[Rfam]
RNA sequence: AUUGCAAACGAUGACAAAAAGACAGGGACUCAGAGCUCCAUUGCAGUAAAAGAUGAGUUAGUCUAUGGGAAAUUAUCUGAUGCAAU
Numbered sequence: 001a002u003u004g005c006a007a008a009c010g011a012u013g014a015c016a017a018a019a020a021g022a023c024a025g026g027g028a029c030u031c032a033g034a035g036c037u038c039c040a041u042u043g044c045a046g047u048a049a050a051a052g053a054u055g056a057g058u059u060a061g062u063c064u065a066u067g068g069g070a071a072a073u074u075a076u077c078u079g080a081u082g083c084a085a086u
Base pairs, nucleotide, nucleotide: 002085003084004083005082006081
Shown here is an 86-nucleotide sequence from Apium graveolens, a member of the family "Small nucleolar RNA R44/J54/Z268 family". The family's RNA type in Rfam is C/D-box small nucleolar RNA. Clan: SNORD74 clan. Lineage of the source: Eukaryota > Tracheophyta > Spermatophyta > Magnoliopsida > Apium. The family has 29 seed sequences and 1,168 matches in Rfam 15.1. The base pairs follow the family's consensus structure, which was predicted with PFOLD.